[Rfam]
RNA sequence: CGAGCAUGAUGAUGAUAAUUUGUAAAUCGUCCGAUUCAUUUGAUGACGGAAGAAACACCUCCUACUCAUACUGA
Numbered sequence: 001c002g003a004g005c006a007u008g009a010u011g012a013u014g015a016u017a018a019u020u021u022g023u024a025a026a027u028c029g030u031c032c033g034a035u036u037c038a039u040u041u042g043a044u045g046a047c048g049g050a051a052g053a054a055a056c057a058c059c060u061c062c063u064a065c066u067c068a069u070a071c072u073g074a
Stems, first nucleotide, its partner, number of pairs: 006069004027050002031042001

Notes
This 74-nucleotide RNA sequence from Tripterygium wilfordii belongs to the Rfam family "Small nucleolar RNA Z105". A search with the family's covariance model found it, with a score of 50 bits. It is annotated as a C/D-box small nucleolar RNA.